[Rfam]
RNA: EFASI RNA
RNA sequence: UCGACUCGGUAUCGAUGGCGACACUACGAACAGUAGUGUUGGAGGCAGCUUGACGAAAGUCAGCUCUGCAUAAGCAGCAAACAGAUCAGAGAUCUGGGGUGCCUCGCAAGAACUCAACAUUUCGCCGCCCCGAUGCACAGAUACCAGUCG
Numbered sequence: 001u002c003g004a005c006u007c008g009g010u011a012u013c014g015a016u017g018g019c020g021a022c023a024c025u026a027c028g029a030a031c032a033g034u035a036g037u038g039u040u041g042g043a044g045g046c047a048g049c050u051u052g053a054c055g056a057a058a059g060u061c062a063g064c065u066c067u068g069c070a071u072a073a074g075c076a077g078c079a080a081a082c083a084g085a086u087c088a089g090a091g092a093u094c095u096g097g098g099g100u101g102c103c104u105c106g107c108a109a110g111a112a113c114u115c116a117a118c119a120u121u122u123c124g125c126c127g128c129c130c131c132g133a134u135g136c137a138c139a140g141a142u143a144c145c146a147g148u149c150g
Stems, first nucleotide, its partner, number of pairs: 002150004008145006019041008042105004050063005082097001083095005